Shown here is a 315-nucleotide part of an RNA from Aplysia californica, a member of the family "Eukaryotic large subunit ribosomal RNA".
Gene Ontology terms of the family: ribosome and structural constituent of ribosome.
The family has 88 seed sequences and 107,465 matches in Rfam 15.1.
Clan: LSU clan.
The organism belongs to Aplysia, within Eukaryota.

RNA sequence: GAGUCUAACAUGCGCGCGAGUCAUUGGGCUGUACGAAACCCAAAGGCGCAGUGAAAGCGAGGGUCGCUCCGGGCGAUCCAGGUGGGAUCUCCGCCCGUCCGCGGGGGGAGCGCACCACCGGCCCGUCCCGUCUGCGUCGGCAGUGGGGCGGAGCUAGAGCGUGCACGCUGGGACCCGAAAGAUGGUGAACUAUGCCUGAGCAGAACGAAGCCAGAGGAAACUCUGGUGGAAGUCCGUAGCGAUUCUGACGUGCAAAUCGAUCGUCAAACUUGGGUAUAGGGGCGAAAGACUAAUCGAACCAUCUAGUAGCUGGUU
Numbered sequence: 001g002a003g004u005c006u007a008a009c010a011u012g013c014g015c016g017c018g019a020g021u022c023a024u025u026g027g028g029c030u031g032u033a034c035g036a037a038a039c040c041c042a043a044a045g046g047c048g049c050a051g052u053g054a055a056a057g058c059g060a061g062g063g064u065c066g067c068u069c070c071g072g073g074c075g076a077u078c079c080a081g082g083u084g085g086g087a088u089c090u091c092c093g094c095c096c097g098u099c100c101g102c103g104g105g106g107g108g109a110g111c112g113c114a115c116c117a118c119c120g121g122c123c124c125g126u127c128c129c130g131u132c133u134g135c136g137u138c139g140g141c142a143g144u145g146g147g148g149c150g151g152a153g154c155u156a157g158a159g160c161g162u163g164c165a166c167g168c169u170g171g172g173a174c175c176c177g178a179a180a181g182a183u184g185g186u187g188a189a190c191u192a193u194g195c196c197u198g199a200g201c202a203g204a205a206c207g208a209a210g211c212c213a214g215a216g217g218a219a220a221c222u223c224u225g226g227u228g229g230a231a232g233u234c235c236g237u238a239g240c241g242a243u244u245c246u247g248a249c250g251u252g253c254a255a256a257u258c259g260a261u262c263g264u265c266a267a268a269c270u271u272g273g274g275u276a277u278a279g280g281g282g283c284g285a286a287a288g289a290c291u292a293a294u295c296g297a298a299c300c301a302u303c304u305a306g307u308a309g310c311u312g313g314u315u
Base pairs, nucleotide, nucleotide: 005171006170007169009167011165012164013163014162015161016160017159020047021046022045025042026041027040028039030037051058052057081119082118083117084116085115089110090109091108092107121154122153123151124150125149126147127146128145134141135140174313175312177310181303182302183301184300185299186298190279191278192277193276194275195274196273197272198271199270200269203235205233206232210227211226212225213224214223215222216221239264240263241262242261244260245259247258248257281291282290